This 600-nucleotide part of an RNA from Verrucomicrobia bacterium LW23 belongs to the Rfam family "Bacterial large subunit ribosomal RNA". The family has 102 seed sequences and 51,934 matches in Rfam 15.1.
RNA sequence: UACAAAGAGCGUACGGUGAAUGCCUUGGCACCAGCAGGCGAUGAAGGACGCGGCCAACUGCGAUAAGGUUCGGGGAGCGGUAGCACGCUUUGAUCCGGACAUUUCCGAAUGGGGUAACCCUAUACGAUUAAUCUCGUAUAAUCCUCCACUGAAUCCAUAGGUGGUUGAUGCGAUACCCGCUGAAGUGAAACAUCUUAGUAAGCGGAGGAAAAGAAAGUGAAACGAUUCCGUCAGUAGUGGCGAGCGAAAGCGGAUCAGCCCAAACCAGGGGGCUUGCCCCCUGGGGUUGUAGGGCCACGAUGUGGUAGUGCAGCGGUUAGGUUAAAAGAAUGGAAAAUCUUUCCACAGAGGGUGAGAGACCCGUGACCUAAAACCAAAACACACCUAGUGGUACCCUGAGUAAUGCGGUGCACGUGAAACCCCGCAUGAAUCCACGCCGACCACGGCGUAAGGCUAAAUACUAGCUGGUGACCGAUAGCGAACAAGUACCGCGAGGGAAAGGCGAAAAGAACCCCGCAAGGGGAGUGAAAUAGAACCUGCAACCGUACGCUUACAAGGUGUCAAAGCCCGCAAGGGUGAUGGCGUGCCUUUUGCUUAAUG
Numbered sequence: 001u002a003c004a005a006a007g008a009g010c011g012u013a014c015g016g017u018g019a020a021u022g023c024c025u026u027g028g029c030a031c032c033a034g035c036a037g038g039c040g041a042u043g044a045a046g047g048a049c050g051c052g053g054c055c056a057a058c059u060g061c062g063a064u065a066a067g068g069u070u071c072g073g074g075g076a077g078c079g080g081u082a083g084c085a086c087g088c089u090u091u092g093a094u095c096c097g098g099a100c101a102u103u104u105c106c107g108a109a110u111g112g113g114g115u116a117a118c119c120c121u122a123u124a125c126g127a128u129u130a131a132u133c134u135c136g137u138a139u140a141a142u143c144c145u146c147c148a149c150u151g152a153a154u155c156c157a158u159a160g161g162u163g164g165u166u167g168a169u170g171c172g173a174u175a176c177c178c179g180c181u182g183a184a185g186u187g188a189a190a191c192a193u194c195u196u197a198g199u200a201a202g203c204g205g206a207g208g209a210a211a212a213g214a215a216a217g218u219g220a221a222a223c224g225a226u227u228c229c230g231u232c233a234g235u236a237g238u239g240g241c242g243a244g245c246g247a248a249a250g251c252g253g254a255u256c257a258g259c260c261c262a263a264a265c266c267a268g269g270g271g272g273c274u275u276g277c278c279c280c281c282u283g284g285g286g287u288u289g290u291a292g293g294g295c296c297a298c299g300a301u302g303u304g305g306u307a308g309u310g311c312a313g314c315g316g317u318u319a320g321g322u323u324a325a326a327a328g329a330a331u332g333g334a335a336a337a338u339c340u341u342u343c344c345a346c347a348g349a350g351g352g353u354g355a356g357a358g359a360c361c362c363g364u365g366a367c368c369u370a371a372a373a374c375c376a377a378a379a380c381a382c383a384c385c386u387a388g389u390g391g392u393a394c395c396c397u398g399a400g401u402a403a404u405g406c407g408g409u410g411c412a413c414g415u416g417a418a419a420c421c422c423c424g425c426a427u428g429a430a431u432c433c434a435c436g437c438c439g440a441c442c443a444c445g446g447c448g449u450a451a452g453g454c455u456a457a458a459u460a461c462u463a464g465c466u467g468g469u470g471a472c473c474g475a476u477a478g479c480g481a482a483c484a485a486g487u488a489c490c491g492c493g494a495g496g497g498a499a500a501g502g503c504g505a506a507a508a509g510a511a512c513c514c515c516g517c518a519a520g521g522g523g524a525g526u527g528a529a530a531u532a533g534a535a536c537c538u539g540c541a542a543c544c545g546u547a548c549g550c551u552u553a554c555a556a557g558g559u560g561u562c563a564a565a566g567c568c569c570g571c572a573a574g575g576g577u578g579a580u581g582g583c584g585u586g587c588c589u590u591u592u593g594c595u596u597a598a599u600g
Stems, first nucleotide, its partner, number of pairs: 007552010022537001023502002027473002029470007036462002038171002046106003049062003068100007077088003111120003121140007142168002146164005176207001177205005187194002217223002226458001227254005237245002257455004265284007291397003295391004308382003315375004320368003326341004344348001350362003403427006410420001434449005489496002512523004560583004566577004587600001589598001